This 401-nucleotide RNA sequence from Nakamurella aerolata belongs to the Rfam family "Bacterial RNase P class A". Ribonuclease P (RNase P) is a ubiquitous endoribonuclease, found in archaea, bacteria and eukarya as well as chloroplasts and mitochondria. Its best characterised activity is the generation of mature 5'-ends of tRNAs by cleaving the 5'-leader elements of precursor-tRNAs. Cellular RNase Ps are ribonucleoproteins. RNA from bacterial RNase Ps retains its catalytic activity in the absence of the protein subunit, i.e. it is a ribozyme. Isolated eukaryotic and archaeal RNase P RNA has not been shown to retain its catalytic function, but is still essential for the catalytic activity of the holoenzyme. Although the archaeal and eukaryotic holoenzyme s have a much greater protein content than the bacterial ones, the RNA cores from all the three lineages are homologous -- helices corresponding to P1, P2, P3, P4, and P10/11 are common to all cellular RNase P RNAs. Yet, there is considerable sequence variation, particularly among the eukaryotic RNAs. Identified in Yersinia as Ysr151/RnpB. The literature on the family includes a 1999 paper in Nucleic Acids Res by Brown, "The Ribonuclease P Database".
[Rfam]
RNA sequence: CAGGUGGUCCGGGCGGCCGCGUCGGCCGAGGCGUCAGGCACUGACGGCUCGGUCGCCGAGGAAAGUCCGGGCUCCGCAGGGCAGGGUGGUUGCUAACGGCAACCCGGCGUAAGCCGCGGGACAGUGCCACAGAGAACAGACCGCCACCGCUGUGCGGUGGUGAGGGUGAAACGGUGGUGUAAGAGACCACCAGCGCCGCGGGUGACCGCGGCGGCUAGGUAAACCCCACCCGGAGCAAGGUCACGAGCAGCCGGCUGGUCCGGUUGUGCGCGAACGUUUGAGGGCGGCCCGCCCGAGUUCGCGGGUAGACCGCUGGAGCACGUCGGCAACGGCGUGCCGAGAUGGAUGGUCGCCGCUGGCUUCGGCCAGCACAGAACCCGGCUUACAGGGCCACCUGAUCC
Numbered sequence: 001c002a003g004g005u006g007g008u009c010c011g012g013g014c015g016g017c018c019g020c021g022u023c024g025g026c027c028g029a030g031g032c033g034u035c036a037g038g039c040a041c042u043g044a045c046g047g048c049u050c051g052g053u054c055g056c057c058g059a060g061g062a063a064a065g066u067c068c069g070g071g072c073u074c075c076g077c078a079g080g081g082c083a084g085g086g087u088g089g090u091u092g093c094u095a096a097c098g099g100c101a102a103c104c105c106g107g108c109g110u111a112a113g114c115c116g117c118g119g120g121a122c123a124g125u126g127c128c129a130c131a132g133a134g135a136a137c138a139g140a141c142c143g144c145c146a147c148c149g150c151u152g153u154g155c156g157g158u159g160g161u162g163a164g165g166g167u168g169a170a171a172c173g174g175u176g177g178u179g180u181a182a183g184a185g186a187c188c189a190c191c192a193g194c195g196c197c198g199c200g201g202g203u204g205a206c207c208g209c210g211g212c213g214g215c216u217a218g219g220u221a222a223a224c225c226c227c228a229c230c231c232g233g234a235g236c237a238a239g240g241u242c243a244c245g246a247g248c249a250g251c252c253g254g255c256u257g258g259u260c261c262g263g264u265u266g267u268g269c270g271c272g273a274a275c276g277u278u279u280g281a282g283g284g285c286g287g288c289c290c291g292c293c294c295g296a297g298u299u300c301g302c303g304g305g306u307a308g309a310c311c312g313c314u315g316g317a318g319c320a321c322g323u324c325g326g327c328a329a330c331g332g333c334g335u336g337c338c339g340a341g342a343u344g345g346a347u348g349g350u351c352g353c354c355g356c357u358g359g360c361u362u363c364g365g366c367c368a369g370c371a372c373a374g375a376a377c378c379c380g381g382c383u384u385a386c387a388g389g390g391c392c393a394c395c396u397g398a399u400c401c
Base pairs, nucleotide, nucleotide: 001397002396003395004394005393006392007391008390009389010388011386012354013353014352015351016350017349018348020058021057023055024054025053026052027051028050029049030048063384064383065382067381068380069379070378071377072235073234074233075232079290080289081288082287084231085230086229087228088227089103090102091101092100093099104118105116106115107114108113119226120225124224125223126220127219128218141165142164143161144160145159146158147157148156149155150154173191174190175189176188177187178186193215194213195212196211197210198209199208200207201206239311240310241309242308270302271301272300273299274298275297282294283293284292285291318337319336320335321334322333323332324331325330

A search with the family's covariance model found it, with a score of 285 bits. Gene Ontology terms of the family: ribonuclease P activity, dimeric ribonuclease P complex and tRNA processing.